Rfam assigns this 74-nucleotide RNA from Marine Group I thaumarchaeote to the family "tRNA". The family's consensus secondary structure is taken from published work. Transfer RNA (tRNA) molecules are approximately 80 nucleotides in length.
[Rfam]
RNA sequence: GCGGUCAUAGUAUAGCCUGGUUAGUAUUCGGGGUUUCCAACCCUGUGACGCGGGUUCGAAUCCCGCUGACCGCA
Numbered sequence: 001g002c003g004g005u006c007a008u009a010g011u012a013u014a015g016c017c018u019g020g021u022u023a024g025u026a027u028u029c030g031g032g033g034u035u036u037c038c039a040a041c042c043c044u045g046u047g048a049c050g051c052g053g054g055u056u057c058g059a060a061u062c063c064c065g066c067u068g069a070c071c072g073c074a
Base pairs, nucleotide, nucleotide: 001073002072003071004070005069006068007067010027011026012025013024029045030044031043032042033041050066051065052064053063054062